[Rfam]
RNA sequence: GUUUGAAUGAUGACUGAAAUUGUCGGAUACCCCUUCACUCCUUCCUGAGUGACACACUGCAGUCUGACAAAC
Numbered sequence: 001g002u003u004u005g006a007a008u009g010a011u012g013a014c015u016g017a018a019a020u021u022g023u024c025g026g027a028u029a030c031c032c033c034u035u036c037a038c039u040c041c042u043u044c045c046u047g048a049g050u051g052a053c054a055c056a057c058u059g060c061a062g063u064c065u066g067a068c069a070a071a072c
Stems, first nucleotide, its partner, number of pairs: 001072005
Rfam assigns this 72-nucleotide sequence from Oryctolagus cuniculus to the family "Small nucleolar RNA SNORD101". Clan: SNORD101 clan. The source organism's lineage runs through Eukaryota, Deuterostomia, Vertebrata, Tetrapoda and Oryctolagus.